[Rfam]
RNA sequence: GCUGUUGAUCGGUAGGUGAGGCUCCUACAGGGAUACGGACUGCUGCCGCGAAAGGGUGGAGACACCUUGAGCAGGUUUGAACAGGCGAUAUCGAAUCCAAGGUAUCGCAUAAUGCAGUUACAUCGCCCUGCAAAGCUAAAGCUCAAACGACAAAUGAAGAGG
Numbered sequence: 001g002c003u004g005u006u007g008a009u010c011g012g013u014a015g016g017u018g019a020g021g022c023u024c025c026u027a028c029a030g031g032g033a034u035a036c037g038g039a040c041u042g043c044u045g046c047c048g049c050g051a052a053a054g055g056g057u058g059g060a061g062a063c064a065c066c067u068u069g070a071g072c073a074g075g076u077u078u079g080a081a082c083a084g085g086c087g088a089u090a091u092c093g094a095a096u097c098c099a100a101g102g103u104a105u106c107g108c109a110u111a112a113u114g115c116a117g118u119u120a121c122a123u124c125g126c127c128c129u130g131c132a133a134a135g136c137u138a139a140a141g142c143u144c145a146a147a148c149g150a151c152a153a154a155u156g157a158a159g160a161g162g
Base pairs, nucleotide, nucleotide: 005158006157008155009154011148013100015143016142017141020137021136022135026132028130029129030128031127032126039118040117041116042115043114045077046075047074048072049071055066056065057064058063085108086107087106090103091102092101
M-box riboswitch aptamer (ykoK leader): a 162-nucleotide sequence from Proteiniclasticum sediminis. The match comes from Rfam's covariance-model search (104 bits). Rfam describes the family as follows. M-box riboswitch, also know as ykoK leader is described as a metaloregulatory RNA that sense divalent metals and function as a genetic control element of genes related to divalent metal transport in bacteria. The organism belongs to Proteiniclasticum, within Bacteria. A reference for the family is Barrick et al. (2004), "New RNA motifs suggest an expanded scope for riboswitches in bacterial genetic control", Proc Natl Acad Sci U S A.